mir-306 microRNA precursor family: an 80-nucleotide RNA sequence from Drosophila melanogaster. The literature on the family includes a 2003 paper in Dev Cell by Aravin et al., "The small RNA profile during Drosophila melanogaster development". Gene Ontology terms of the family: miRNA-mediated post-transcriptional gene silencing and RISC complex. Taxonomically the source falls in Sophophora (Eukaryota, Metazoa, Muscomorpha, Ephydroidea).
RNA sequence: CCACUCGAUGGCUCAGGUACUUAGUGACUCUCAAUGCUUUUGACAUUUUGGGGGUCACUCUGUGCCUGUGCUGCCAGUGG
Numbered sequence: 001c002c003a004c005u006c007g008a009u010g011g012c013u014c015a016g017g018u019a020c021u022u023a024g025u026g027a028c029u030c031u032c033a034a035u036g037c038u039u040u041u042g043a044c045a046u047u048u049u050g051g052g053g054g055u056c057a058c059u060c061u062g063u064g065c066c067u068g069u070g071c072u073g074c075c076a077g078u079g080g
Stems, first nucleotide, its partner, number of pairs: 001080005007074001009073004014068007023059011034046003